[Rfam]
Rfam assigns this 137-nucleotide sequence from Lachnospiraceae bacterium 5_1_57FAA to the family "Ribosomal protein L10 leader".
RNA sequence: AAUAUCUCACGAUGACUGCCGAAGACAGCAGGUGCGUAAGCGUAAGUAGACAAACGCCUGCCGAGGAAAGUUGGAUUCUGUUAUUAUGAAUUACAAUGCCUCUAUGUCUUUGGAUAUAGAGGCUUUUUAGCAUAUAG
Number, nucleotide and partner (000 for none) at each position: 001a000002a000003u000004a000005u000006c000007u000008c000009a000010c000011g000012a000013u000014g000015a000016c000017u000018g000019c000020c000021g000022a000023a000024g000025a000026c000027a000028g061029c060030a059031g058032g057033u056034g041035c040036g000037u000038a000039a000040g035041c034042g000043u000044a000045a000046g000047u000048a000049g000050a000051c000052a000053a000054a000055c000056g033057c032058c031059u030060g029061c028062c000063g000064a000065g000066g000067a000068a000069a000070g000071u000072u000073g000074g000075a000076u000077u000078c000079u000080g000081u000082u000083a000084u000085u000086a000087u000088g000089a000090a000091u000092u000093a000094c000095a000096a000097u000098g000099c122100c121101u120102c119103u118104a117105u116106g115107u114108c113109u000110u000111u000112g000113g108114a107115u106116a105117u104118a103119g102120a101121g100122g099123c000124u000125u000126u000127u000128u000129a000130g000131c000132a000133u000134a000135u000136a000137g000
The family's consensus secondary structure was predicted with CMfinder.